[Rfam]
RNA sequence: AUUUUAGGAUAAGUAUGUCCCAUGCAAAAUUUGGGACAUGCUUAUCCUUAAA
Numbered sequence: 001a002u003u004u005u006a007g008g009a010u011a012a013g014u015a016u017g018u019c020c021c022a023u024g025c026a027a028a029a030u031u032u033g034g035g036a037c038a039u040g041c042u043u044a045u046c047c048u049u050a051a052a
Stems, first nucleotide, its partner, number of pairs: 006048007014040003018036004022031001
RNA: mir-1302 microRNA precursor family